RNA sequence: AUCGGUUUUGAAACAGACAGCGUAUGCGAGCAGUUUUAAUAAAGCAGUUUUCAGUUUAAGCGUUAUCUUUGAUAUCUCUUCUUCGUGACUUCCUUCUUAAGUGCCUCAUAAGUACGGCCUGUUGACAAACCUCCAUGCCCGUUGCGGCCCAAUACUUUAUGAAGGAAAAAGACAUGUCUAACAAAAUGACUGGUUUAGUAAAAUGGUUCAACGCUGAGAAAGGUUUCGGCUUCAUCUCCCCAACUGACGGCAGCAAAGACGUUUUCGUACACUUUUCUGCUAUUCAGAAUGGCGGUUUCAAAACACUGGAAGAAGGUCAGAAAGUUGAAUUUACUAUCGAAAAUGGCCAGAAAGGCCCUGCAGCAGCGAACGUUACUGCACUGUAAGACAGAGAGUUUGCUGCAGCCAGAUAGCGACGUCGAGUGAAUAAAAACGGCCCCUAAGGGGCCGUUUUUAU
Dot-bracket structure: ....((((......))))......((...(.((..........(..(.((((..((......(((.(.((((.(.((...(.(.((.....(((((.(...((...................))............(((......)))..........).)))))......))).).(((..........)))...........))))))).).)))..))))....)).))...)).).))..(((.((.......((.....))....((((.((((((.(((((...(............).)))))....)).))))))))........)).))).....((..........)).(((((((.(.....).)))..))))...((.................................)).....(((((((((((...)))))))))))...
Shown here is a 457-nucleotide sequence from Erwinia tracheiphila, a member of the family "cspA thermoregulator". It scores 216 bits against the family's covariance model. By type it is an RNA thermoregulator. The source organism's lineage runs through Bacteria, Pseudomonadota, Enterobacterales, Erwiniaceae and Erwinia. For this family Rfam cites "The cspA mRNA is a thermosensor that modulates translation of the cold-shock protein CspA" (Giuliodori et al., Mol Cell, 2010).